RNA sequence: GAAUGAAGAGUGAGAAACUCUUCCACCGAAUGACCAAGGGUUCCAGGGUCAAGCUAAUCUUCCCUGGGUAAGUCGGGACCUAAGGCGAGGCCGACAGGCGUAGUCGAUGGACAACGGGUUGAUAUUCCCGUACCGGCGUUGAAUCGCCCAUGCUGAAUCCAGUGAUGCUAAGUGCCCGAAACCGUACCUACCGUCUCUUCGGAGACAAUGGUGCGGCAGAGCGCAUGACCCGAUCUGGUAGUAGGCAAGCAAUGGUGUGACGCAGGAAGGUAGCUCAUCCGUGGCGAUGGUAGUCCACGGGUAAGGUCGUAGGGCGAGUGAUAGGCAAAUCCGUCACUCUUAUGCCUGAGAGCCGAUGCCACCCGCUUAGCGGAGUGUGAGUGAUCCUAUGCUGCCGAGAAAAGCAUCUAGCGAGAUUCAAAGCCGCCCGUACCCCAAACCGACUCAGGUGGUCAAGUAGAGAAUACUAAGGUGAU
Dot-bracket structure: ....((((((.......))))))((((....((((..((...((((((...((.....)).))))))......((((.((...(((.(.(((....))).).)))...))...(((((........)))))..((((.((((((........................................................................................................((...(((((...((((..(((..(((((.((((((..........))))))((..(((....(((.(((((((.((.....))))))))).....)))....)))...))...((((...))))....)))))...)))...))))........)))))..))...)))))).))))))))..)).....((......)).)))).((((.....))))..))))..
The family of this 476-nucleotide part of an RNA from Aeromicrobium flavum is "Bacterial large subunit ribosomal RNA".